[Rfam]
RNA: bZIP non canonical Hac1/Xbp1 intron
Organism: Monosporascus sp. mg162
RNA sequence: GGCUUCUUCCGACGUGACACAACAUCCAGCAGCGAUGUUGUGCGACCCGCAGUGUCAGUCGGUGGAAGUU
Numbered sequence: 001g002g003c004u005u006c007u008u009c010c011g012a013c014g015u016g017a018c019a020c021a022a023c024a025u026c027c028a029g030c031a032g033c034g035a036u037g038u039u040g041u042g043c044g045a046c047c048c049g050c051a052g053u054g055u056c057a058g059u060c061g062g063u064g065g066a067a068g069u070u
Stems, first nucleotide, its partner, number of pairs: 001070007009062005021039006044056003